[Rfam]
RNA sequence: GGAGCGAGUCUUAGACGCUCCGGUGCUGACGUGUUAAUAGUGGCAUCUUUGGCCGGGUGACCAUGGUUAGUGAAUC
Numbered sequence: 001g002g003a004g005c006g007a008g009u010c011u012u013a014g015a016c017g018c019u020c021c022g023g024u025g026c027u028g029a030c031g032u033g034u035u036a037a038u039a040g041u042g043g044c045a046u047c048u049u050u051g052g053c054c055g056g057g058u059g060a061c062c063a064u065g066g067u068u069a070g071u072g073a074a075u076c
Base pairs, nucleotide, nucleotide: 001021002020003019004018005017006016034070035069036068037067038066040064041063042062043061044059045058046057047056048055
RNA: L13-Bacteroidia ribosomal protein leader